[Rfam]
RNA: Streptococcus sRNA Spd-sr37
RNA sequence: CAAUAAUCAUGAUGGUCAAAGCUCAUGAGGGUUGUGCGUUUUUGACGUACAAUUUUCUAGAGAUU
Numbered sequence: 001c002a003a004u005a006a007u008c009a010u011g012a013u014g015g016u017c018a019a020a021g022c023u024c025a026u027g028a029g030g031g032u033u034g035u036g037c038g039u040u041u042u043u044g045a046c047g048u049a050c051a052a053u054u055u056u057c058u059a060g061a062g063a064u065u
Stems, first nucleotide, its partner, number of pairs: 019065002022062003033051006